Plastid psbT antisense RNA: a 38-nucleotide sequence from Gossypium schwendimanii. Pairs were carried over by alignment from the consensus structure, which was predicted with LocARNA. The organism belongs to Gossypium, within Eukaryota. For this family Rfam cites "Characterization of plastid psbT sense and antisense RNAs" (Zghidi-Abouzid et al., Nucleic Acids Res, 2011). A search with the family's covariance model found it, with a score of 49 bits. From the family's description: Plastid-psbT-asRNA is an antisense RNA (asRNA) motif reported in Plastids It has been shown that psbT expression is controlled by two antisense RNAs originated from psbN transcription by the nuclear-encoded polymerase (NEP), in which the short antisense RNA hybridizes to psbT CDS, thereby stabilizing psbT transcript while blocking its translation during photooxidative stress.

RNA sequence: AUAAUUGGAUCUGCAAGUUUUUGGAAUGCUCCAAAUUC
Numbered sequence: 001a002u003a004a005u006u007g008g009a010u011c012u013g014c015a016a017g018u019u020u021u022u023g024g025a026a027u028g029c030u031c032c033a034a035a036u037u038c
Base pairs, nucleotide, nucleotide: 003018005016006015007014020035021034022033023032024031025030